BsrG: a 264-nucleotide RNA sequence. It scores 137 bits against the family's covariance model. By type it is a small RNA. bsrE, bsrG and bsrH pair through intermolecular interactions with antisense sRNAs. They form type I toxin/antitoxin system that includes an mRNA encoding for a short, toxic peptide (bsrE, bsrG and bsrH) and an antitoxin that is comprised of an antisense RNA. bsrG encodes a 39-amino-acid toxin, and the 180 nucleotide antisense sRNA called SR4 acts as the antitoxin (they overlap by 123 nucleotides). SR4 interaction with the 3'UTR of bsrG RNA promotes bsrG degradation and inhibits its translation. For this family Rfam cites "Against the mainstream: the membrane-associated type I toxin BsrG from Bacillus subtilis interferes with cell envelope biosynthesis without increasing membrane permeability" (Jahn et al., Mol Microbiol, 2015).
RNA sequence: UACAGUAAGCUUUGCUCACCAAGGGAGUCUUGCUCACCUCCAAGCCUCAAACAGAGGAGGUGAGGCCAAUGUCAACUUUUCAAGCAUUAAUACUUAUGCUUGCAUUCGGGUCAUUUAUAAUUGCCCUGUUGACAUACAUCAAUAAAAAAUAGACCUUCCCUUGGCCCUGAAGAAGUUUAAGGGAAUGGUCUAUCUGCAAAGAAAGAACCAAUGAGCAAGCCCUUUGAUGGGCAGCUUAGUACAAACAAUGACCUGUGGGUGUUG
Numbered sequence: 001u002a003c004a005g006u007a008a009g010c011u012u013u014g015c016u017c018a019c020c021a022a023g024g025g026a027g028u029c030u031u032g033c034u035c036a037c038c039u040c041c042a043a044g045c046c047u048c049a050a051a052c053a054g055a056g057g058a059g060g061u062g063a064g065g066c067c068a069a070u071g072u073c074a075a076c077u078u079u080u081c082a083a084g085c086a087u088u089a090a091u092a093c094u095u096a097u098g099c100u101u102g103c104a105u106u107c108g109g110g111u112c113a114u115u116u117a118u119a120a121u122u123g124c125c126c127u128g129u130u131g132a133c134a135u136a137c138a139u140c141a142a143u144a145a146a147a148a149a150u151a152g153a154c155c156u157u158c159c160c161u162u163g164g165c166c167c168u169g170a171a172g173a174a175g176u177u178u179a180a181g182g183g184a185a186u187g188g189u190c191u192a193u194c195u196g197c198a199a200a201g202a203a204a205g206a207a208c209c210a211a212u213g214a215g216c217a218a219g220c221c222c223u224u225u226g227a228u229g230g231g232c233a234g235c236u237u238a239g240u241a242c243a244a245a246c247a248a249u250g251a252c253c254u255g256u257g258g259g260u261g262u263u264g
Stems, first nucleotide, its partner, number of pairs: 001241003007237003011233001012218006019164007027154004034063008071133006084099003108125002176200003219232004246264005252258002